[Rfam]
RNA: Small nucleolar RNA SNORA61
RNA sequence: UUCCUCCAGUUCUCUUUCCCAUCAGAUCUGAACACCAGUUUUGGUGGUUGUAAAAGGAGAAAAAGUAAUACUGAAGUUGGCCUCACAGCGCUUAUAGUGUGCUGUAUAUACAGCAUGUGGGCUCGUUUCACACAGGA
Numbered sequence: 001u002u003c004c005u006c007c008a009g010u011u012c013u014c015u016u017u018c019c020c021a022u023c024a025g026a027u028c029u030g031a032a033c034a035c036c037a038g039u040u041u042u043g044g045u046g047g048u049u050g051u052a053a054a055a056g057g058a059g060a061a062a063a064a065g066u067a068a069u070a071c072u073g074a075a076g077u078u079g080g081c082c083u084c085a086c087a088g089c090g091c092u093u094a095u096a097g098u099g100u101g102c103u104g105u106a107u108a109u110a111c112a113g114c115a116u117g118u119g120g121g122c123u124c125g126u127u128u129c130a131c132a133c134a135g136g137a
Stems, first nucleotide, its partner, number of pairs: 004059004019047005025040003077125001079123005093115001095113001